[Rfam]
RNA sequence: CUGCCUUCAGCACGCAGAUGUGCGACGGAAUCCGUGCUCCAGGCAGAGUGUUUUUCAGACGUCCAUCGCACCGCGCUUGCACGAGCGCGGCCCGAACACGGGAGAGAACGCUGAGCGUUAUGAC
Numbered sequence: 001c002u003g004c005c006u007u008c009a010g011c012a013c014g015c016a017g018a019u020g021u022g023c024g025a026c027g028g029a030a031u032c033c034g035u036g037c038u039c040c041a042g043g044c045a046g047a048g049u050g051u052u053u054u055u056c057a058g059a060c061g062u063c064c065a066u067c068g069c070a071c072c073g074c075g076c077u078u079g080c081a082c083g084a085g086c087g088c089g090g091c092c093c094g095a096a097c098a099c100g101g102g103a104g105a106g107a108a109c110g111c112u113g114a115g116c117g118u119u120a121u122g123a124c
Stems, first nucleotide, its partner, number of pairs: 001046006009038004071090008
This 124-nucleotide RNA from Corynebacterium renale belongs to the Rfam family "atpB RNA". The match comes from Rfam's covariance-model search (116 bits).